[Rfam]
RNA sequence: AAAUAGGAUAGAGGCGCAACUGACAAGAGUAGGAAUAGGCAAUGAAAGCAAGCAGUCUACUUCGAAAGGGGAUGUUGCCGAAAUAAUACUUGUAGUGCUUUGCAAGUAUUGUUGGAACAGGGAUUAAUAGUUUUUGUUCUGUCAUUAUACAAGUAUAAUGGAGGGCUAGCCAGGAG
Number, nucleotide and partner (000 for none) at each position: 001a000002a000003a000004u000005a000006g171007g170008a000009u168010a167011g166012a000013g000014g000015c000016g078017c077018a076019a075020c074021u000022g000023a000024c070025a000026a000027g000028a000029g000030u000031a000032g063033g062034a061035a000036u059037a058038g057039g056040c000041a000042a000043u000044g000045a000046a000047a000048g000049c000050a000051a000052g000053c000054a000055g000056u039057c038058u037059a036060c000061u034062u033063c032064g000065a000066a000067a000068g000069g000070g024071g000072a000073u000074g020075u019076u018077g017078c016079c000080g000081a000082a113083a112084u111085a110086a109087u108088a107089c106090u105091u104092g103093u102094a000095g000096u000097g000098c000099u000100u000101u000102g093103c092104a091105a090106g089107u088108a087109u086110u085111g084112u083113u082114g140115g139116a138117a137118c136119a135120g134121g133122g132123a131124u130125u000126a000127a000128u000129a000130g124131u123132u122133u121134u120135u119136g118137u117138u116139c115140u114141g000142u161143c160144a159145u158146u157147a156148u155149a000150c000151a000152a000153g000154u000155a148156u147157a146158a145159u144160g143161g142162a000163g000164g000165g000166c011167u010168a009169g000170c007171c006172a000173g000174g000175a000176g000
RNA: Lysine riboswitch aptamer
Organism: Peptostreptococcus stomatis